Shown here is a 104-nucleotide RNA sequence from Streptomyces kaniharaensis, a member of the family "Glycine riboswitch aptamer". This family represents the bacterial glycine riboswitch.

Nucleotides: 104
Base pairs, nucleotide, nucleotide: 006099007098008097009096011094012093013092020047021046022045023044024043025042026041049084050083051082052080053079056078057077058076062072063071
Number, partner (000 for none) and nucleotide at each position: 001000c002000g003000a004000g005000c006099c007098c008097g009096c010000u011094c012093g013092g014000g015000a016000g017000a018000g019000u020047c021046c022045c023044c024043g025042a026041c027000g028000g029000c030000g031000g032000a033000a034000a035000c036000c037000g038000c039000u040000g041026g042025u043024c044023g045022g046021g047020g048000c049084g050083c051082c052080g053079a054000a055000g056078g057077a058076g059000c060000a061000a062072c063071u064000c065000c066000u067000c068000c069000c070000c071063g072062g073000a074000a075000u076058c077057u078056c079053u080052c081000a082051g083050g084049c085000a086000u087000c088000c089000g090000u091000a092013c093012c094011g095000u096009g097008u098007g099006g100000g101000g102000u103000a104000g
The match comes from Rfam's covariance-model search (63 bits).
Taxonomically the source falls in Streptomyces (Bacteria, Actinomycetota, Actinomycetes, Streptomycetaceae).